[Rfam]
A member of the RNA family "TPP riboswitch aptamer (THI element)" from Limosilactobacillus fermentum, 93 nucleotides long. It scores 75 bits against the family's covariance model. The family's consensus secondary structure is taken from published work. Its family is annotated with thiamine pyrophosphate binding in the Gene Ontology. The source organism's lineage runs through Bacteria, Bacilli, Lactobacillales, Lactobacillaceae and Limosilactobacillus.

RNA sequence: AGAAUCUGUCUGGGGUGCUAUUGAUUUAGCUGAGAAAUACCCAUUGAACCUGAUCUAGUUAAUACUAGCGGAGGAAGACGGUUGAAUCAACGG
Numbered sequence: 001a002g003a004a005u006c007u008g009u010c011u012g013g014g015g016u017g018c019u020a021u022u023g024a025u026u027u028a029g030c031u032g033a034g035a036a037a038u039a040c041c042c043a044u045u046g047a048a049c050c051u052g053a054u055c056u057a058g059u060u061a062a063u064a065c066u067a068g069c070g071g072a073g074g075a076a077g078a079c080g081g082u083u084g085a086a087u088c089a090a091c092g093g
Stems, first nucleotide, its partner, number of pairs: 006081005011043004016037001017030004049074003055068004